[Rfam]
Background: The family of this 88-nucleotide RNA sequence from Apis mellifera is "mir-282 microRNA precursor family". Rfam links the family to the GO terms miRNA-mediated post-transcriptional gene silencing and RISC complex. For this family Rfam cites "Direct sequencing and expression analysis of a large number of miRNAs in Aedes aegypti and a multi-species survey of novel mosquito miRNAs" (Li et al., BMC Genomics, 2009). Rfam's curators put it in the seed alignment. The family has 21 seed sequences and 136 matches in Rfam 15.1.
RNA sequence: AGAGUAACUUGAUUUAGCCUCUCCUAGGCUUUGUCUGUAUAUAAAGAACGGAGACAUAGCCUAGAAUAGGUUAGGUCAGGGCUCGUUC
Numbered sequence: 001a002g003a004g005u006a007a008c009u010u011g012a013u014u015u016a017g018c019c020u021c022u023c024c025u026a027g028g029c030u031u032u033g034u035c036u037g038u039a040u041a042u043a044a045a046g047a048a049c050g051g052a053g054a055c056a057u058a059g060c061c062u063a064g065a066a067u068a069g070g071u072u073a074g075g076u077c078a079g080g081g082c083u084c085g086u087u088c
Base pairs, nucleotide, nucleotide: 012076013075014074015073016072017071018070019069020068027061028060029059030058032056033055034054035053036052